[Rfam]
RNA sequence: UCCGGGGGAAGCUCACCGCCGAGGCCACCCACUGGGUGCCCGUCACCCGCGCCCCCGCCUCGGGGAAGGUCUGAGGGAAGGGCCGCCCGCGGCUCCAGCAGAGCCCCGCCCGCGACGGGCGGGUGAGCCACCAGCAAGGGGGGGCGCCGCGUAGUUUGGGCCGGCCCCGGGCAGGAGAAGCCGUGGUGGUUGGCAUGGCGUCGGGGGGAAGGACGCGCUCAUCGCUACCACCCCCCCCCGCGUUAUAAAAACCCCGGUGGAUGCUCUCGGCCCCGCGGUGCUUUGAGACAGACUCACGGCCGGCGAUGGUUGAGUCCAAUGGGUGAGGUGGGGCAGCGCCCUACAACCCAAUUCAGACUACUCUCCCCCGGA
Numbered sequence: 001u002c003c004g005g006g007g008g009a010a011g012c013u014c015a016c017c018g019c020c021g022a023g024g025c026c027a028c029c030c031a032c033u034g035g036g037u038g039c040c041c042g043u044c045a046c047c048c049g050c051g052c053c054c055c056c057g058c059c060u061c062g063g064g065g066a067a068g069g070u071c072u073g074a075g076g077g078a079a080g081g082g083c084c085g086c087c088c089g090c091g092g093c094u095c096c097a098g099c100a101g102a103g104c105c106c107c108g109c110c111c112g113c114g115a116c117g118g119g120c121g122g123g124u125g126a127g128c129c130a131c132c133a134g135c136a137a138g139g140g141g142g143g144g145c146g147c148c149g150c151g152u153a154g155u156u157u158g159g160g161c162c163g164g165c166c167c168c169g170g171g172c173a174g175g176a177g178a179a180g181c182c183g184u185g186g187u188g189g190u191u192g193g194c195a196u197g198g199c200g201u202c203g204g205g206g207g208g209a210a211g212g213a214c215g216c217g218c219u220c221a222u223c224g225c226u227a228c229c230a231c232c233c234c235c236c237c238c239c240g241c242g243u244u245a246u247a248a249a250a251a252c253c254c255c256g257g258u259g260g261a262u263g264c265u266c267u268c269g270g271c272c273c274c275g276c277g278g279u280g281c282u283u284u285g286a287g288a289c290a291g292a293c294u295c296a297c298g299g300c301c302g303g304c305g306a307u308g309g310u311u312g313a314g315u316c317c318a319a320u321g322g323g324u325g326a327g328g329u330g331g332g333g334c335a336g337c338g339c340c341c342u343a344c345a346a347c348c349c350a351a352u353u354c355a356g357a358c359u360a361c362u363c364u365c366c367c368c369c370g371g372a
Base pairs, nucleotide, nucleotide: 001372002371003370004369007366008365009364012327013326014325015324016323017322020062021061022060023059024058034048035047036046037045038044071356072355073354074353075352081301082300083299084298091105092104093103094102095101106122107121108120109119110118111117123297124296125295126294127293129291143282144281145280146279147278148277149276150275151274328344329343330342331341332340333339334338
Annotation:
The family of this 372-nucleotide RNA sequence from Scopus umbretta is "Nuclear RNase P". It scores 160 bits against the family's covariance model. NCBI's taxonomy places the organism under Eukaryota, Gnathostomata, Euteleostomi, Sauria, Scopus. It is annotated as a ribozyme.